[Rfam]
RNA sequence: CGCAAAGGCAUCAUUGAGUGCAGCGUUGAUGAGCCGGUCGCCGCCGCCGGCCGCCGGCUCACCGGCGCUGCACUCAAUUACGCAUUUG
Numbered sequence: 001c002g003c004a005a006a007g008g009c010a011u012c013a014u015u016g017a018g019u020g021c022a023g024c025g026u027u028g029a030u031g032a033g034c035c036g037g038u039c040g041c042c043g044c045c046g047c048c049g050g051c052c053g054c055c056g057g058c059u060c061a062c063c064g065g066c067g068c069u070g071c072a073c074u075c076a077a078u079u080a081c082g083c084a085u086u087u088g
Base pairs, nucleotide, nucleotide: 006085008083009082011080013078014077015076016075017074018073019072020071021070022069023068024067025066026065027064028063030061031060032059033058034057035056036055037054038053

MIR397 microRNA precursor family: an 88-nucleotide sequence from Setaria italica.
Gene Ontology terms of the family: RISC complex and miRNA-mediated post-transcriptional gene silencing.